[Rfam]
RNA: mir-4877 microRNA precursor family
RNA sequence: CUCCCUCUGCGAUGGGGGUAGUUUCUCCACUACUUCAGUGCUGUGGUGGGUGAAGUAGUAGUUGAACUAUCUUCUUCACAGUGGCUC
Numbered sequence: 001c002u003c004c005c006u007c008u009g010c011g012a013u014g015g016g017g018g019u020a021g022u023u024u025c026u027c028c029a030c031u032a033c034u035u036c037a038g039u040g041c042u043g044u045g046g047u048g049g050g051u052g053a054a055g056u057a058g059u060a061g062u063u064g065a066a067c068u069a070u071c072u073u074c075u076u077c078a079c080a081g082u083g084g085c086u087c
Base pairs, nucleotide, nucleotide: 004084005083007081008080009079011077012076014074015073016072017071018070019069020068021067022066023065024064027061029059030058031057032056033055034054035053036052037051041048